Nucleotides: 109
Base pairs, nucleotide, nucleotide: 001046002045003044004043005042007040008039009038015036016035017034018033056073057072058071059070060069061068062067081104082103083102084101085100086099088096089095090094
Number, partner (000 for none) and nucleotide at each position: 001046a002045g003044u004043u005042g006000a007040u008039g009038c010000a011000c012000a013000g014000c015036g016035c017034g018033g019000c020000u021000u022000u023000u024000c025000u026000c027000c028000c029000a030000g031000u032000g033018c034017c035016g036015c037000c038009g039008c040007g041000u042005c043004a044003g045002c046001u047000g048000u049000u050000c051000c052000c053000c054000u055000c056073u057072g058071g059070a060069g061068g062067u063000u064000u065000c066000g067062a068061c069060c070059u071058u072057c073056a074000c075000a076000c077000u078000u079000c080000a081104u082103g083102g084101g085100c086099c087000g088096c089095g090094g091000u092000u093000u094090c095089c096088g097000a098000c099086g100085g101084c102083c103082c104081a105000u106000u107000u108000u109000u